[Rfam]
RNA sequence: CUCGCAGACCGCCUUAUCGCCGUUUCUUCUGAUUGCUAUCAGAAAGAGAGGGAGGAAAGUCCGGACACCACAGAGAAGCAUAGCGGGUAACACCCGUCGGUCUCAUAUCGAUUGGGAUUAGGACAAGUGCAACAGAAAGUAUGUACAGGUAAUGCUGUAGUGAAACCAGGUAAACUCUAUGCGGUGAAAUAUCAAGUAUAUCAGCAUUUAAGGAUUUCUCGUUCGUUGCUGAAGGGUAGAUAGAUGGAUCCCGUUAGUAAUAUCGGGACUAGAUAAAUGAUAAGGUAUUUUUGAAUGUUGAAAAGCAAUUCAAAAAGAACAGAAUCCGGCUUACAGGUCUGCUAUUUUU
Numbered sequence: 001c002u003c004g005c006a007g008a009c010c011g012c013c014u015u016a017u018c019g020c021c022g023u024u025u026c027u028u029c030u031g032a033u034u035g036c037u038a039u040c041a042g043a044a045a046g047a048g049a050g051g052g053a054g055g056a057a058a059g060u061c062c063g064g065a066c067a068c069c070a071c072a073g074a075g076a077a078g079c080a081u082a083g084c085g086g087g088u089a090a091c092a093c094c095c096g097u098c099g100g101u102c103u104c105a106u107a108u109c110g111a112u113u114g115g116g117a118u119u120a121g122g123a124c125a126a127g128u129g130c131a132a133c134a135g136a137a138a139g140u141a142u143g144u145a146c147a148g149g150u151a152a153u154g155c156u157g158u159a160g161u162g163a164a165a166c167c168a169g170g171u172a173a174a175c176u177c178u179a180u181g182c183g184g185u186g187a188a189a190u191a192u193c194a195a196g197u198a199u200a201u202c203a204g205c206a207u208u209u210a211a212g213g214a215u216u217u218c219u220c221g222u223u224c225g226u227u228g229c230u231g232a233a234g235g236g237u238a239g240a241u242a243g244a245u246g247g248a249u250c251c252c253g254u255u256a257g258u259a260a261u262a263u264c265g266g267g268a269c270u271a272g273a274u275a276a277a278u279g280a281u282a283a284g285g286u287a288u289u290u291u292u293g294a295a296u297g298u299u300g301a302a303a304a305g306c307a308a309u310u311c312a313a314a315a316a317g318a319a320c321a322g323a324a325u326c327c328g329g330c331u332u333a334c335a336g337g338u339c340u341g342c343u344a345u346u347u348u349u
Stems, first nucleotide, its partner, number of pairs: 002344001004342007011334001012285007020052002023049006057332003061329005066186004073220004078182005083097005098121001099119007122177002127175002129171002144159005190242004201232005212224004249268005255262002
Bacterial RNase P class A: a 349-nucleotide RNA sequence from Flavobacterium agrisoli. It is annotated as a ribozyme.